[Rfam]
This 204-nucleotide RNA from Streptomyces indicus belongs to the Rfam family "Streptomyces RNA 1601". Lineage of the source: Bacteria > Actinomycetota > Actinomycetes > Kitasatosporales > Streptomyces. About the family: Identified by deep sequencing of transcriptome at the end of exponential growth phase. Appears longer on northern blot than sequencing transcript. Streptomyces specific.

RNA sequence: AACGACCGGCCGGACACCCCUGCUGAAAAGCGAGGCGCCCGGCCCACAAGUGGAGGCUCCGAUCUCCCACCUGGCCGCCCAGCAGGGCGGCGGGUCACCGGUCCGGCAGACGCACCGAGUGUGUCUCGUCGCUGAUGCGCCCCGCGUACGUCGCGGUGGUGCUCCGGUAUGGAGCCCCGCCUGUGAUCGUCCGGGGCAUUUUUC
Numbered sequence: 001a002a003c004g005a006c007c008g009g010c011c012g013g014a015c016a017c018c019c020c021u022g023c024u025g026a027a028a029a030g031c032g033a034g035g036c037g038c039c040c041g042g043c044c045c046a047c048a049a050g051u052g053g054a055g056g057c058u059c060c061g062a063u064c065u066c067c068c069a070c071c072u073g074g075c076c077g078c079c080c081a082g083c084a085g086g087g088c089g090g091c092g093g094g095u096c097a098c099c100g101g102u103c104c105g106g107c108a109g110a111c112g113c114a115c116c117g118a119g120u121g122u123g124u125c126u127c128g129u130c131g132c133u134g135a136u137g138c139g140c141c142c143c144g145c146g147u148a149c150g151u152c153g154c155g156g157u158g159g160u161g162c163u164c165c166g167g168u169a170u171g172g173a174g175c176c177c178c179g180c181c182u183g184u185g186a187u188c189g190u191c192c193g194g195g196g197c198a199u200u201u202u203u204c
Stems, first nucleotide, its partner, number of pairs: 004103006012040002041096005047073002050070004054065002074091007106129002109126001111123005139197006145189002152185003155181005161175005